RNA sequence: AAAAAGGAGGGGAUGGCUUCUGUCAUGAGUGGCACACAUGGGGCAACUCAACUGCUCUGUGUGCAGAAUCAACAUCAAGAGAUUUUGAAAGCAUAAUUUUUUGGUAUCUGGGCAGGUGGUAAUCAUUGGUCCUGGCGUCCAU
Numbered sequence: 001a002a003a004a005a006g007g008a009g010g011g012g013a014u015g016g017c018u019u020c021u022g023u024c025a026u027g028a029g030u031g032g033c034a035c036a037c038a039u040g041g042g043g044c045a046a047c048u049c050a051a052c053u054g055c056u057c058u059g060u061g062u063g064c065a066g067a068a069u070c071a072a073c074a075u076c077a078a079g080a081g082a083u084u085u086u087g088a089a090a091g092c093a094u095a096a097u098u099u100u101u102u103g104g105u106a107u108c109u110g111g112g113c114a115g116g117u118g119g120u121a122a123u124c125a126u127u128g129g130u131c132c133u134g135g136c137g138u139c140c141a142u
Base pairs, nucleotide, nucleotide: 016092017091018090019089021034022033023032024031025030035063036062037061038060039059040058041057042056043055044054045053064087065086066085067084068083069082070081110140111139112138113137115136117134118133119132122130123129124128
Dot-bracket structure: ...............((((.(((((....)))))(((((((((((.......)))))))))))(((((((..........))))))).)))).................((((.(.(((..(((...))).))).)))))..
U11 spliceosomal RNA: a 142-nucleotide sequence from Otolemur garnettii. A search with the family's covariance model found it, with a score of 87 bits.